[Rfam]
RNA sequence: GGUGGCCUUACAGCAAUCAACUAAAAUUCAAUUGUCUGAAACCCUCGCCAUCUG
Numbered sequence: 001g002g003u004g005g006c007c008u009u010a011c012a013g014c015a016a017u018c019a020a021c022u023a024a025a026a027u028u029c030a031a032u033u034g035u036c037u038g039a040a041a042c043c044c045u046c047g048c049c050a051u052c053u054g
Stems, first nucleotide, its partner, number of pairs: 001052006